[Rfam]
RNA sequence: CCGCCUGUAAACGCCUUCCCCAAAAUUCGGGCAGUCCUUGCCCGCGGAGGAUCCUUAAUGCCCCGGGGCCCGGGGCAGAGUCGGCCCUCCCAGAGCCCGCCGGCGCCCCCGAGCGUCAGCCCGGCGCAGGGGGCCGGCCACACU
Numbered sequence: 001c002c003g004c005c006u007g008u009a010a011a012c013g014c015c016u017u018c019c020c021c022a023a024a025a026u027u028c029g030g031g032c033a034g035u036c037c038u039u040g041c042c043c044g045c046g047g048a049g050g051a052u053c054c055u056u057a058a059u060g061c062c063c064c065g066g067g068g069c070c071c072g073g074g075g076c077a078g079a080g081u082c083g084g085c086c087c088u089c090c091c092a093g094a095g096c097c098c099g100c101c102g103g104c105g106c107c108c109c110c111g112a113g114c115g116u117c118a119g120c121c122c123g124g125c126g127c128a129g130g131g132g133g134c135c136g137g138c139c140a141c142a143c144u
Stems, first nucleotide, its partner, number of pairs: 028044007046090005052084001060076006099138005106133005113127005
A member of the RNA family "Small nucleolar RNA GlsR24" from Giardia duodenalis, 144 nucleotides long.
The sequence is in the family's curated seed alignment.
The base pairs follow the family's consensus structure, which was predicted with WAR.
Rfam classes the family as an H/ACA-box small nucleolar RNA.